[Rfam]
RNA sequence: UUUUUUGCUUUGAUAAGGAAUAGUAAUCAGAAAAGUGAUCGAUAGAGAGCUGACGGUUGGUGCAAGUCGGCGGCGCAAUUUUGAUGAACUCACCUUAGAGCUCGCAUUGGUGAACAAUAGUAACUAAUUGCCGUUUUCCGCGUUAAGGAUUCAAGCUGGGCGACUUUGUCGUCAAUUUGGGUGGCACCGCGGGAAAAUGCAUUUCAUGAUCUCGUCCCUAUU
Numbered sequence: 001u002u003u004u005u006u007g008c009u010u011u012g013a014u015a016a017g018g019a020a021u022a023g024u025a026a027u028c029a030g031a032a033a034a035g036u037g038a039u040c041g042a043u044a045g046a047g048a049g050c051u052g053a054c055g056g057u058u059g060g061u062g063c064a065a066g067u068c069g070g071c072g073g074c075g076c077a078a079u080u081u082u083g084a085u086g087a088a089c090u091c092a093c094c095u096u097a098g099a100g101c102u103c104g105c106a107u108u109g110g111u112g113a114a115c116a117a118u119a120g121u122a123a124c125u126a127a128u129u130g131c132c133g134u135u136u137u138c139c140g141c142g143u144u145a146a147g148g149a150u151u152c153a154a155g156c157u158g159g160g161c162g163a164c165u166u167u168g169u170c171g172u173c174a175a176u177u178u179g180g181g182u183g184g185c186a187c188c189g190c191g192g193g194a195a196a197a198u199g200c201a202u203u204u205c206a207u208g209a210u211c212u213c214g215u216c217c218c219u220a221u222u
Stems, first nucleotide, its partner, number of pairs: 007101002015096004026085006039073002049071006105130002107127005132142003159173006179218003189215005
A member of the RNA family "T-box leader" from Sporosarcina sp. HYO08, 222 nucleotides long.
A search with the family's covariance model found it, with a score of 127 bits.